[Rfam]
RNA: c-di-GMP-I riboswitch aptamer
RNA sequence: UCUCGAUAAAGGCAAACCUGGUGAAAACCAGCGACGCAAAGCUAAAGGGGCUACGGCAAUUCAUUGCUAAGCCAGCCAGCUACCGAA
Number, nucleotide and partner (000 for none) at each position: 001u000002c000003u000004c000005g000006a000007u000008a000009a000010a000011g000012g037013c036014a000015a000016a000017c000018c031019u030020g029021g028022u027023g000024a000025a000026a000027a022028c021029c020030a019031g018032c000033g000034a000035c000036g013037c012038a000039a000040a081041g080042c079043u078044a000045a000046a000047g077048g076049g073050g072051c071052u000053a000054c000055g000056g067057c066058a065059a064060u000061u000062c000063a000064u059065u058066g057067c056068u000069a000070a000071g051072c050073c049074a000075g000076c048077c047078a043079g042080c041081u040082a000083c000084c000085g000086a000087a000